[Rfam]
RNA sequence: AAACCGCCCUCUAAGUAUUGACUUUUUUGCAGUUUUGGCCCCCACGGCAAAUUUUGACCAAGUCAUUGCACACCUGGACGCCACGUGUGUAUUUAUUUAUUUUUUAAAUUUUUUAAUAUAUAUUUUUCAAUUAAAAAAUAAAUACACAUGUGGCGUCCACGUCAGCUUUGACUUGGUCAAAAUUGGCCUGAGGAGCCAAAACUGCAAAAAAGUCAAUACUUAGGGGCGGUUU
Numbered sequence: 001a002a003a004c005c006g007c008c009c010u011c012u013a014a015g016u017a018u019u020g021a022c023u024u025u026u027u028u029g030c031a032g033u034u035u036u037g038g039c040c041c042c043c044a045c046g047g048c049a050a051a052u053u054u055u056g057a058c059c060a061a062g063u064c065a066u067u068g069c070a071c072a073c074c075u076g077g078a079c080g081c082c083a084c085g086u087g088u089g090u091a092u093u094u095a096u097u098u099a100u101u102u103u104u105u106a107a108a109u110u111u112u113u114u115a116a117u118a119u120a121u122a123u124u125u126u127u128c129a130a131u132u133a134a135a136a137a138a139u140a141a142a143u144a145c146a147c148a149u150g151u152g153g154c155g156u157c158c159a160c161g162u163c164a165g166c167u168u169u170g171a172c173u174u175g176g177u178c179a180a181a182a183u184u185g186g187c188c189u190g191a192g193g194a195g196c197c198a199a200a201a202c203u204g205c206a207a208a209a210a211a212g213u214c215a216a217u218a219c220u221u222a223g224g225g226g227c228g229g230u231u232u
Stems, first nucleotide, its partner, number of pairs: 001232002004229005012222028041193002043190002072162002075159024

Background:
The family of this 232-nucleotide sequence from Medicago truncatula is "MIR2619 microRNA precursor family". Gene Ontology terms of the family: miRNA-mediated post-transcriptional gene silencing and RISC complex.